Rfam assigns this 102-nucleotide RNA from Salipaludibacillus agaradhaerens to the family "Purine riboswitch aptamer". Riboswitches are metabolite binding domains within certain messenger RNAs that serve as precision sensors for their corresponding targets. Allosteric rearrangement of mRNA structure is mediated by ligand binding, and this results in modulation of gene expression. A class of riboswitches that selectively recognises guanine and becomes saturated at concentrations as low as 5 nM. In Bacillus subtilis, this mRNA motif is located on at least five separate transcriptional units that together encode 17 genes that are mostly involved in purine transport and purine nucleotide biosynthesis. It has also been shown that some members of this family are specific for adenine instead. The match comes from Rfam's covariance-model search (84 bits). The family's consensus secondary structure is taken from published work.

[Rfam]
RNA sequence: GAUAUUUAUCUGUCAUAAAUUCGUAUAAUUUUGGGAAUAGGGCCCUUAAGUUUCUACCGAGCUGCCGUAAAUAGCUCGACUACGAAUGAUAUGUUCGUUCAC
Numbered sequence: 001g002a003u004a005u006u007u008a009u010c011u012g013u014c015a016u017a018a019a020u021u022c023g024u025a026u027a028a029u030u031u032u033g034g035g036a037a038u039a040g041g042g043c044c045c046u047u048a049a050g051u052u053u054c055u056a057c058c059g060a061g062c063u064g065c066c067g068u069a070a071a072u073a074g075c076u077c078g079a080c081u082a083c084g085a086a087u088g089a090u091a092u093g094u095u096c097g098u099u100c101a102c
Stems, first nucleotide, its partner, number of pairs: 019087007029049002033045003058078007